[Rfam]
RNA sequence: GACUUCUAACACAACAAAAGCCCUACCUCUCUUUUGUCCUUACGGCUCCAAUGACCGUGCCAGUGUGAAUCAGAAACGUCUUUAAAAC
Numbered sequence: 001g002a003c004u005u006c007u008a009a010c011a012c013a014a015c016a017a018a019a020g021c022c023c024u025a026c027c028u029c030u031c032u033u034u035u036g037u038c039c040u041u042a043c044g045g046c047u048c049c050a051a052u053g054a055c056c057g058u059g060c061c062a063g064u065g066u067g068a069a070u071c072a073g074a075a076a077c078g079u080c081u082u083u084a085a086a087a088c
Stems, first nucleotide, its partner, number of pairs: 034068003039063002041059005047053001
Dot-bracket structure: .................................(((..(((((((.(.....).)))))..))..)))....................
Annotation: Shown here is an 88-nucleotide RNA sequence from Paenibacillus antarcticus, a member of the family "BsrC". The family's consensus secondary structure was predicted with CMfinder. A search with the family's covariance model found it, with a score of 68 bits. From the family's description: The 301 nucleotide sequence from Kouji Nakamura has been trimmed to a highly conserved ~85 nucleotide long core to form this family. The family has 29 seed sequences and 572 matches in Rfam 15.1.